[Rfam]
Rfam assigns this 147-nucleotide sequence from Heyndrickxia shackletonii to the family "FMN riboswitch aptamer (RFN element)".
RNA sequence: GUUAUCCUUCGGGGUCGGGUGAAAUUCCCAACCGGCGGUGAUGAAGCCAAGAACUUCUAAGUCCGUGACCCGGUUAACAGUUUGUUAAACGGUGGAGCUGGUGAAAAUCCAGCACCGACAGUAUAGUCUGGAUGGGAGAAGGAAGAA
Numbered sequence: 001g002u003u004a005u006c007c008u009u010c011g012g013g014g015u016c017g018g019g020u021g022a023a024a025u026u027c028c029c030a031a032c033c034g035g036c037g038g039u040g041a042u043g044a045a046g047c048c049a050a051g052a053a054c055u056u057c058u059a060a061g062u063c064c065g066u067g068a069c070c071c072g073g074u075u076a077a078c079a080g081u082u083u084g085u086u087a088a089a090c091g092g093u094g095g096a097g098c099u100g101g102u103g104a105a106a107a108u109c110c111a112g113c114a115c116c117g118a119c120a121g122u123a124u125a126g127u128c129u130g131g132a133u134g135g136g137a138g139a140a141g142g143a144a145g146a147a
Stems, first nucleotide, its partner, number of pairs: 003145001005143006017029003031127002033117002035066004061115002070092002097113005119130003
Description
Rfam describes the family as follows. The RFN element is a highly conserved domain that is found frequently in the 5'-untranslated regions of prokaryotic mRNAs that encode for flavin mononucleotide (FMN) biosynthesis and transport proteins. The match comes from Rfam's covariance-model search (117 bits). Pairs were carried over by alignment from the consensus structure, which is taken from published work.